[Rfam]
RNA sequence: ACGGUGGAUACCGAAAAACCGAAAAAGAGUAGGCG
Numbered sequence: 001a002c003g004g005u006g007g008a009u010a011c012c013g014a015a016a017a018a019c020c021g022a023a024a025a026a027g028a029g030u031a032g033g034c035g
Base pairs, nucleotide, nucleotide: 002021003020004019005018011033012032